RNA sequence: GUUAUUGAAAUAGCGCCAGAACCUAUGGGUACAUAGGUUGACGAGGACGAAGUUAUCGAAAAUUCGGCGGAUGCUUCGCGGUAUACACUACCGAUAAAUGUCAGGAGAAAUACAGGAAGUGAUUCCUGGGACAAUCCUGCAGGGUGUAUUAA
Numbered sequence: 001g002u003u004a005u006u007g008a009a010a011u012a013g014c015g016c017c018a019g020a021a022c023c024u025a026u027g028g029g030u031a032c033a034u035a036g037g038u039u040g041a042c043g044a045g046g047a048c049g050a051a052g053u054u055a056u057c058g059a060a061a062a063u064u065c066g067g068c069g070g071a072u073g074c075u076u077c078g079c080g081g082u083a084u085a086c087a088c089u090a091c092c093g094a095u096a097a098a099u100g101u102c103a104g105g106a107g108a109a110a111u112a113c114a115g116g117a118a119g120u121g122a123u124u125c126c127u128g129g130g131a132c133a134a135u136c137c138u139g140c141a142g143g144g145u146g147u148a149u150u151a152a
Stems, first nucleotide, its partner, number of pairs: 020039008048078005056067004079093005099141002102139004113128006
Notes:
A member of the RNA family "glmS glucosamine-6-phosphate activated ribozyme aptamer" from Proteiniclasticum aestuarii, 152 nucleotides long. Its family is annotated with catalytic activity and regulation of gene expression in the Gene Ontology. Taxonomically the source falls in Proteiniclasticum (Bacteria, Bacillati, Clostridia, Clostridiaceae). A search with the family's covariance model found it, with a score of 96 bits.